[Rfam]
RNA sequence: UGCAGGCAUGCGCGGGAACUUUCUCAGGUCGUCCGCAAGGAUGGCAGCCCCUAGUGGGUGGGAUCCUGAGACCCGGGGCCUGCUUUUUU
Numbered sequence: 001u002g003c004a005g006g007c008a009u010g011c012g013c014g015g016g017a018a019c020u021u022u023c024u025c026a027g028g029u030c031g032u033c034c035g036c037a038a039g040g041a042u043g044g045c046a047g048c049c050c051c052u053a054g055u056g057g058g059u060g061g062g063a064u065c066c067u068g069a070g071a072c073c074c075g076g077g078g079c080c081u082g083c084u085u086u087u088u089u
Stems, first nucleotide, its partner, number of pairs: 002083006011076001013075004022071006028045007048058003